Bacterial large subunit ribosomal RNA: a 249-nucleotide part of an RNA from Porphyromonas macacae.
A search with the family's covariance model found it, with a score of 2721 bits.
The base pairs follow the family's consensus structure, which is taken from published work.
[Rfam]
RNA sequence: AGGAGAUUUGCGAGGAUCUGACACUAGUACGAGAGGACCGUGUUGGACGUACCACUGGUUUACCGGUUGUUUCGCCAGGAGCAUAGCCGGGUAUCUAAGUACGGAUGGAAUAAGUGCUGAAAGCAUCUAAGUACGAAGUCCGCCUCAAGAUUAGAUCUCCCAUGAGGGUGGUUAUAGACGAUGACCUUGAUAGGCUACAGGUGUACAGGCAGUAAUGUCAUAGCCGAGUAGUACUAAUAGCCCGAAAGA
Numbered sequence: 001a002g003g004a005g006a007u008u009u010g011c012g013a014g015g016a017u018c019u020g021a022c023a024c025u026a027g028u029a030c031g032a033g034a035g036g037a038c039c040g041u042g043u044u045g046g047a048c049g050u051a052c053c054a055c056u057g058g059u060u061u062a063c064c065g066g067u068u069g070u071u072u073c074g075c076c077a078g079g080a081g082c083a084u085a086g087c088c089g090g091g092u093a094u095c096u097a098a099g100u101a102c103g104g105a106u107g108g109a110a111u112a113a114g115u116g117c118u119g120a121a122a123g124c125a126u127c128u129a130a131g132u133a134c135g136a137a138g139u140c141c142g143c144c145u146c147a148a149g150a151u152u153a154g155a156u157c158u159c160c161c162a163u164g165a166g167g168g169u170g171g172u173u174a175u176a177g178a179c180g181a182u183g184a185c186c187u188u189g190a191u192a193g194g195c196u197a198c199a200g201g202u203g204u205a206c207a208g209g210c211a212g213u214a215a216u217g218u219c220a221u222a223g224c225c226g227a228g229u230a231g232u233a234c235u236a237a238u239a240g241c242c243c244g245a246a247a248g249a
Stems, first nucleotide, its partner, number of pairs: 002160008012146004018046007048103005056097003063090005068083006107141003114134005163245001166243004170186005191236003194232005200225002204220001208219004
About this RNA
Rfam links the family to the GO terms ribosome and structural constituent of ribosome.